[Rfam]
RNA sequence: CCUGCAGAGGUGCCGGACGGCGAGCCGGGGACCCACCGCAGUCCUGGGGUGAGUUCUCCUGCCGGCCGGUUCGCCGGUGCGCAGGGGAUAGGGCCAGUCUUCCCAGCCCGAACCCGUCAGCUAACUCGGUAGGCGGUCGUUGAGGAAGAA
Dot-bracket structure: ..(((.....((........)).((((((....((.........))(((.....((((((((..................))))))))..((((...........))))...))).........))))))..)))...............

Annotation: Rfam assigns this 150-nucleotide sequence from Blastococcus tunisiensis to the family "c-di-AMP riboswitch aptamer (ydaO/yuaA leader)". Rfam's curators write: This family represents a conserved RNA structure found upstream of the ydaO and yuaA genes in Bacillus subtilis and related genes in other bacteria. Gene Ontology terms of the family: cyclic-di-AMP binding and regulation of gene expression. Lineage of the source: Bacteria > Bacillati > Geodermatophilales > Geodermatophilaceae > Blastococcus.